The family of this 84-nucleotide RNA from Hevea brasiliensis is "Small nucleolar RNA Z159/U59". A search with the family's covariance model found it, with a score of 53 bits. The family's RNA type in Rfam is C/D-box small nucleolar RNA. The base pairs follow the family's consensus structure, which was predicted with PFOLD. The family has 10 seed sequences and 1,401 matches in Rfam 15.1. A reference for the family is Chen et al. (2003), "The high diversity of snoRNAs in plants: identification and comparative study of 120 snoRNA genes from Oryza sativa", Nucleic Acids Res. Clan: SNORD59 clan.
RNA sequence: CUCUCUAAUGAUGUGGUUUUUAAAACUUUCGUUCUCCUGAGCUUAAUAAUGCUGAAAAAUUGUGGAGACCUGAGCUGAAGAGUU
Numbered sequence: 001c002u003c004u005c006u007a008a009u010g011a012u013g014u015g016g017u018u019u020u021u022a023a024a025a026c027u028u029u030c031g032u033u034c035u036c037c038u039g040a041g042c043u044u045a046a047u048a049a050u051g052c053u054g055a056a057a058a059a060u061u062g063u064g065g066a067g068a069c070c071u072g073a074g075c076u077g078a079a080g081a082g083u084u
Stems, first nucleotide, its partner, number of pairs: 003082004